[Rfam]
RNA sequence: GAGGAUAUAGCUCAGUGGUAGAGUGUGUGCUUAGCAUGCACGAGGGCCUGAGUUCAAUCCCCAGUACCUCCA
Number, nucleotide and partner (000 for none) at each position: 001g071002a000003g069004g068005a000006u066007a065008u000009a000010g024011c023012u022013c021014a000015g000016u000017g000018g000019u000020a000021g013022a012023g011024u010025g000026u042027g041028u040029g039030c038031u000032u000033a000034g000035c000036a000037u000038g030039c029040a028041c027042g026043a000044g000045g000046g000047c000048c064049u063050g062051a000052g060053u000054u000055c000056a000057a000058u000059c000060c052061c000062c050063a049064g048065u007066a006067c000068c004069u003070c000071c001072a000

The record is a 72-nucleotide RNA sequence from Camelus dromedarius, which matches "tRNA" in Rfam. Lineage of the source: Eukaryota > Chordata > Euteleostomi > Theria > Camelus. It is annotated as a transfer RNA.